[Rfam]
Nucleotides: 351
Stems, first nucleotide, its partner, number of pairs: 001314003009311001011198004016192001018191003022085004027080002030078002032074009046062006089185003092181005100174007107151001111147008122133003159166002203244006212238002217233004255310006263288011292299002316343003325336004
Number, partner (000 for none) and nucleotide at each position: 001314g002313g003312u004000g005000u006000a007000a008000a009311g010000g011198g012197u013196c014195c015000g016192c017000a018191g019190g020189c021000g022085g023084u024083u025082a026000c027080g028079c029000a030078a031077g032074u033073g034072a035071a036070a037069g038068g039067u040066g041000a042000a043000a044000u045000c046062u047061u048060u049059c050058a051057g052000c053000u054000c055000a056000a057051c058050u059049g060048a061047a062046a063000a064000a065000g066040u067039g068038c069037c070036u071035u072034u073033c074032a075000a076000a077031c078030u079028g080027c081000a082025u083024a084023a085022c086000u087000u088000g089185a090184g091183g092181a093180u094179g095178a096177a097000a098000g099000a100174g101173g102172a103171a104170a105169g106168u107151g108000g109000a110000a111147c112146u113145a114144c115143c116142g117141g118140u119000g120000u121000a122133a123132a124131g125000g126000u127000g128000a129000a130000a131124u132123u133122u134000g135000u136000g137000g138000a139000g140118a141117u142116c143115g144114g145113u146112a147111g148000g149000a150000a151107c152000g153000c154000c155000c156000g157000u158000g159166g160165a161000g162000a163000a164000g165160u166159c167000g168106g169105c170104u171103u172102u173101c174100u175000g176000g177096u178095u179094c180093a181092u182000u183091c184090c185089u186000g187000a188000c189020g190019c191018u192016g193000a194000g195014g196013g197012a198011c199000g200000a201000a202000a203244g204243c205242u206241a207240g208239g209000g210000g211000a212238g213237c214000a215000a216000a217233c218232a219231g220230g221000a222000u223000u224000a225000g226000a227000u228000a229000c230220c231219c232218u233217g234000g235000u236000a237213g238212u239208c240207c241206u242205a243204g244203c245000u246000g247000u248000a249000a250000a251000c252000g253000a254000u255310g256309g257308g258307c259306a260305c261000u262000a263288g264287g265286u266285g267284u268283u269282c270281g271280u272279c273278c274000g275000u276000a277000a278273g279272g280271a281270u282269g283268g284267g285266u286265g287264c288263c289000g290000c291000a292299g293298c294000u295000a296000a297000c298293g299292c300000a301000u302000u303000a304000a305260g306259u307258g308257c309256c310255c311009c312003a313002c314001c315000u316343g317342g318341g319000g320000a321000c322000u323000a324000c325336g326335g327334c328333c329000g330000c331000a332000a333328g334327g335326c336325u337000a338000a339000a340000a341318c342317u343316c344000a345000a346000a347000g348000g349000a350000a351000u
Shown here is a 351-nucleotide part of an RNA from an uncultured bacterium, a member of the family "Bacterial small subunit ribosomal RNA". It is one of the family's seed sequences. Clan: SSU clan. For this family Rfam cites "Crystal structure of the ribosome at 5.5 A resolution" (Yusupov et al., Science, 2001).